Overview
Rfam assigns this 234-nucleotide sequence from Solanum tuberosum to the family "U2 spliceosomal RNA". The organism belongs to Solanum, within Eukaryota. A search with the family's covariance model found it, with a score of 76 bits. For this family Rfam cites "The spliceosomal snRNAs of Caenorhabditis elegans" (Thomas et al., Nucleic Acids Res, 1990). The base pairs follow the family's consensus structure, which is taken from published work.
RNA sequence: UUACCUUUCUCAGCCUUUUCGCUAAGAUCAAGUACUGAACUGUUCUUAUCAGUUUAAUAUCUGAUCAAGUACUAAUCUGUUCUUAUCAGUUUAAUAUUUGAUACGUGGGGUCUCACCCCACAUGAUAUUGACUCAAUUUUUCUUGAGGGAAGGUUCAUCAAGGUAGCUUGAUACCUGGGACUUCACGCAUUGCCCCAAAUCGUUGCCCUACAGUCCAGGCCUGAUGUACCCCAC
Numbered sequence: 001u002u003a004c005c006u007u008u009c010u011c012a013g014c015c016u017u018u019u020c021g022c023u024a025a026g027a028u029c030a031a032g033u034a035c036u037g038a039a040c041u042g043u044u045c046u047u048a049u050c051a052g053u054u055u056a057a058u059a060u061c062u063g064a065u066c067a068a069g070u071a072c073u074a075a076u077c078u079g080u081u082c083u084u085a086u087c088a089g090u091u092u093a094a095u096a097u098u099u100g101a102u103a104c105g106u107g108g109g110g111u112c113u114c115a116c117c118c119c120a121c122a123u124g125a126u127a128u129u130g131a132c133u134c135a136a137u138u139u140u141u142c143u144u145g146a147g148g149g150a151a152g153g154u155u156c157a158u159c160a161a162g163g164u165a166g167c168u169u170g171a172u173a174c175c176u177g178g179g180a181c182u183u184c185a186c187g188c189a190u191u192g193c194c195c196c197a198a199a200u201c202g203u204u205g206c207c208c209u210a211c212a213g214u215c216c217a218g219g220c221c222u223g224a225u226g227u228a229c230c231c232c233a234c
Stems, first nucleotide, its partner, number of pairs: 008027003012023003047103006105121007149184004154179003163174003187227006194219002198214001